[Rfam]
RNA: gltS RNA
Organism: Vibrio navarrensis
RNA sequence: UAUCACCAAGGAUUGUUUUUCCCACAACAUGAUUCCUGUGGGAUGCGGAAAGGACUCAAAACCAGCGCCCCUUGCUGGUUGCGACUCAGAACUAUAAAGGACGGA
Numbered sequence: 001u002a003u004c005a006c007c008a009a010g011g012a013u014u015g016u017u018u019u020u021c022c023c024a025c026a027a028c029a030u031g032a033u034u035c036c037u038g039u040g041g042g043a044u045g046c047g048g049a050a051a052g053g054a055c056u057c058a059a060a061a062c063c064a065g066c067g068c069c070c071c072u073u074g075c076u077g078g079u080u081g082c083g084a085c086u087c088a089g090a091a092c093u094a095u096a097a098a099g100g101a102c103g104g105a
Base pairs, nucleotide, nucleotide: 020043021042022041023040024039025038026037061079062078063077064076065075066074067073